[Rfam]
RNA sequence: CUCGUCCGUCACGUGGACUCCUCGACCACCGGCCUCCGGUCCCGGCUACCCUGGCGGCGUGCGUUCUCUCCCGGGGACGUUCCCCAUGGACGGAACCGGGCAGCGCAAAGCCGACAGCCGUCGCAUCCUAGGGAGCCCUUUCAUG
Numbered sequence: 001c002u003c004g005u006c007c008g009u010c011a012c013g014u015g016g017a018c019u020c021c022u023c024g025a026c027c028a029c030c031g032g033c034c035u036c037c038g039g040u041c042c043c044g045g046c047u048a049c050c051c052u053g054g055c056g057g058c059g060u061g062c063g064u065u066c067u068c069u070c071c072c073g074g075g076g077a078c079g080u081u082c083c084c085c086a087u088g089g090a091c092g093g094a095a096c097c098g099g100g101c102a103g104c105g106c107a108a109a110g111c112c113g114a115c116a117g118c119c120g121u122c123g124c125a126u127c128c129u130a131g132g133g134a135g136c137c138c139u140u141u142c143a144u145g
Base pairs, nucleotide, nucleotide: 060107061106062105063104067100068099110124111123113122114121115120
About this RNA: This 145-nucleotide sequence belongs to the Rfam family "Streptomyces-metH RNA". Rfam classes the family as a small RNA.